[Rfam]
RNA sequence: UACCACUUGGUAAAAAACUAUCUCGUAAAAGGCACGGUUUAGUAGGUCAAUUCUCGAAAGACCGUGAGGGACUUAAAAG
Numbered sequence: 001u002a003c004c005a006c007u008u009g010g011u012a013a014a015a016a017a018c019u020a021u022c023u024c025g026u027a028a029a030a031g032g033c034a035c036g037g038u039u040u041a042g043u044a045g046g047u048c049a050a051u052u053c054u055c056g057a058a059a060g061a062c063c064g065u066g067a068g069g070g071a072c073u074u075a076a077a078a079g
Stems, first nucleotide, its partner, number of pairs: 001012004021071003033066007045055002
RNA: RT-18 RNA